[Rfam]
This 73-nucleotide RNA sequence belongs to the Rfam family "RAGATH-18 RNA". The base pairs follow the family's consensus structure, which is taken from published work. From the family's description: Actinobacteria, Firmicutes, Fusobacteria, Thermotogae (1 example). The family's RNA type in Rfam is small RNA.
RNA sequence: ACUGUGGAGUGUACAAGAACCUGUGAGUCGCGUAUUGUUUGCAAUCGUCAAAACAUACACAAUGAAUCAGGAA
Numbered sequence: 001a002c003u004g005u006g007g008a009g010u011g012u013a014c015a016a017g018a019a020c021c022u023g024u025g026a027g028u029c030g031c032g033u034a035u036u037g038u039u040u041g042c043a044a045u046c047g048u049c050a051a052a053a054c055a056u057a058c059a060c061a062a063u064g065a066a067u068c069a070g071g072a073a
Base pairs, nucleotide, nucleotide: 002070003069004068009060010059011058012057013056022055023054024053030048031047032046035044036043